[Rfam]
RNA sequence: AACUGUUAAUGAUGAUCUUGUUUUAAAAACAAUGGGAAUCUCUCUGAAUUAGAGUGAAAGAUGACUUUUAACUGACACAGUA
Numbered sequence: 001a002a003c004u005g006u007u008a009a010u011g012a013u014g015a016u017c018u019u020g021u022u023u024u025a026a027a028a029a030c031a032a033u034g035g036g037a038a039u040c041u042c043u044c045u046g047a048a049u050u051a052g053a054g055u056g057a058a059a060g061a062u063g064a065c066u067u068u069u070a071a072c073u074g075a076c077a078c079a080g081u082a
Base pairs, nucleotide, nucleotide: 002081003080004079005078006077
A member of the RNA family "Small nucleolar RNA SNORD79" from Tetraodon nigroviridis, 82 nucleotides long. The family's RNA type in Rfam is C/D-box small nucleolar RNA. It is one of the family's seed sequences. Its Rfam clan is "SNORD74 clan". Gene Ontology terms of the family: RNA processing and nucleolus. The family's consensus secondary structure was predicted with PFOLD. The family has 28 seed sequences and 784 matches in Rfam 15.1.